A member of the RNA family "Small nucleolar RNA SNORA57" from Dissostichus mawsoni, 137 nucleotides long. It is annotated as an H/ACA-box small nucleolar RNA. From the family's description: U99 belongs to the H/ACA class of snoRNAs which are thought to guide the sites of modification of uridines to pseudouridines, the target for this family is unknown. The family has 26 seed sequences and 1,736 matches in Rfam 15.1. It scores 84 bits against the family's covariance model. Rfam links the family to the GO terms RNA processing and nucleolus.

[Rfam]
RNA sequence: CCUCCUUUCUUGGCAUGCACGUUGUUUUUCUGUAUACGUGUGUGUUUGUGAUGGAGGAAUAUGAAAGUCCAGUUCUAUGUCUUCGGUGCCAGAAAGUCCACCAUCUUCUGGUUCUAUCCUCAAUAACUGGUACACUU
Dot-bracket structure: (((((........((((((.(.(((........)))).))))))........)))))............(((((..............((((((.(........))))))).............)))))........